[Rfam]
RNA: skipping-rope RNA
RNA sequence: CUCUAUUGAGGAUAGAACAGGCAGCUAUCACACCUAAGUGGUCUUUUGAGAGAUGCAGGAGUGCCGACCUGCCAAUAGAG
Numbered sequence: 001c002u003c004u005a006u007u008g009a010g011g012a013u014a015g016a017a018c019a020g021g022c023a024g025c026u027a028u029c030a031c032a033c034c035u036a037a038g039u040g041g042u043c044u045u046u047u048g049a050g051a052g053a054u055g056c057a058g059g060a061g062u063g064c065c066g067a068c069c070u071g072c073c074a075a076u077a078g079a080g
Stems, first nucleotide, its partner, number of pairs: 001080008011029005020065004031050001032042003055072005